Shown here is a 75-nucleotide RNA from Haemonchus placei, a member of the family "mir-5928 microRNA precursor family". NCBI's taxonomy places the organism under Eukaryota, Opisthokonta, Protostomia, Trichostrongylidae, Haemonchus. Rfam links the family to the GO terms miRNA-mediated post-transcriptional gene silencing and RISC complex.
RNA sequence: UGCCAAAAUUUCAAGUAGAGCAGAUUAAUAAGAUCAGCUGACCAUACUAAUCUACUCUACUUCAAGUUUGUGCCC
Numbered sequence: 001u002g003c004c005a006a007a008a009u010u011u012c013a014a015g016u017a018g019a020g021c022a023g024a025u026u027a028a029u030a031a032g033a034u035c036a037g038c039u040g041a042c043c044a045u046a047c048u049a050a051u052c053u054a055c056u057c058u059a060c061u062u063c064a065a066g067u068u069u070g071u072g073c074c075c
Stems, first nucleotide, its partner, number of pairs: 002073002006069004011064001013062008022053002025050003029046002032043001034041002